[Rfam]
RNA sequence: UAGCAUCGAAAAGGGACGGGUUGUCCAGCUGGAUUGUUCCGUAUAAUUUUGGUGCAAUAUAGUAGAGAGGCGCAGUGUUACUCUUCAUCACGUCUUCUGUGAACGGGGAGUGUCAAGCGCUUCCCACAAUU
Numbered sequence: 001u002a003g004c005a006u007c008g009a010a011a012a013g014g015g016a017c018g019g020g021u022u023g024u025c026c027a028g029c030u031g032g033a034u035u036g037u038u039c040c041g042u043a044u045a046a047u048u049u050u051g052g053u054g055c056a057a058u059a060u061a062g063u064a065g066a067g068a069g070g071c072g073c074a075g076u077g078u079u080a081c082u083c084u085u086c087a088u089c090a091c092g093u094c095u096u097c098u099g100u101g102a103a104c105g106g107g108g109a110g111u112g113u114c115a116a117g118c119g120c121u122u123c124c125c126a127c128a129a130u131u
Base pairs, nucleotide, nucleotide: 003055004054005053006052007051008050009049010048011047016042017041018040019039020038024033025032026031065125067123068122069121070120071119072118073117076115077114079112080111081110082109083108084107085106086105089101090100091099092098
RNA: Caenorhabditis snoRNA ceN80
Organism: Caenorhabditis japonica